[Rfam]
RNA: L4-Archaeoglobi ribosomal protein leades
RNA sequence: CUGAUGGAGGCGCAUGGGUUGAGGUCGGCCUCGACCGCCCUGUACCCCUUAAAUCAAAAAGAAGAUUCCAGAAGGGGCAGCGCCUGAACGUCAG
Number, nucleotide and partner (000 for none) at each position: 001c094002u093003g092004a091005u090006g000007g000008a085009g084010g083011c082012g081013c080014a000015u000016g040017g039018g038019u000020u000021g000022a000023g036024g035025u034026c033027g032028g000029c000030c000031u000032c027033g026034a025035c024036c023037g000038c018039c017040c016041u000042g000043u079044a000045c077046c076047c075048c074049u073050u072051a000052a000053a000054u000055c000056a000057a000058a000059a000060a000061g000062a000063a000064g000065a000066u000067u000068c000069c000070a000071g000072a050073a049074g048075g047076g046077g045078c000079a043080g013081c012082g011083c010084c009085u008086g000087a000088a000089c000090g005091u004092c003093a002094g001